[Rfam]
RNA sequence: AGAUUAUCACAUGACUGGCGGAAGUGGAAUUAACCACAGGGAGUGUGAUUUGAAUAAAUGCCGACCGCCUGGGCAAAGAUA
Numbered sequence: 001a002g003a004u005u006a007u008c009a010c011a012u013g014a015c016u017g018g019c020g021g022a023a024g025u026g027g028a029a030u031u032a033a034c035c036a037c038a039g040g041g042a043g044u045g046u047g048a049u050u051u052g053a054a055u056a057a058a059u060g061c062c063g064a065c066c067g068c069c070u071g072g073g074c075a076a077a078g079a080u081a
Stems, first nucleotide, its partner, number of pairs: 006049007015040002017069005024037004059075004